RNA sequence: GACUGGUCUGAGUGCAGUGGUGUUCACAACUAAUGGAUCACAACCAAUUACACAUUUAUUUGUUCCUUUCUAUUCCCACUGCUUCAUGUGACUAGCCUUAA
Numbered sequence: 001g002a003c004u005g006g007u008c009u010g011a012g013u014g015c016a017g018u019g020g021u022g023u024u025c026a027c028a029a030c031u032a033a034u035g036g037a038u039c040a041c042a043a044c045c046a047a048u049u050a051c052a053c054a055u056u057u058a059u060u061u062g063u064u065c066c067u068u069u070c071u072a073u074u075c076c077c078a079c080u081g082c083u084u085c086a087u088g089u090g091a092c093u094a095g096c097c098u099u100a101a
Stems, first nucleotide, its partner, number of pairs: 001097001003095006010089001014085001016080005022075001028064003032060004

Description: Y RNA: a 101-nucleotide sequence from Prolemur simus. It scores 57 bits against the family's covariance model. NCBI's taxonomy places the organism under Eukaryota, Opisthokonta, Euteleostomi, Euarchontoglires, Prolemur. The family has 104 seed sequences and 26,986 matches in Rfam 15.1. About the family: Y RNAs are components of the Ro ribonucleoprotein particle (Ro RNP), in association with Ro60 and La proteins.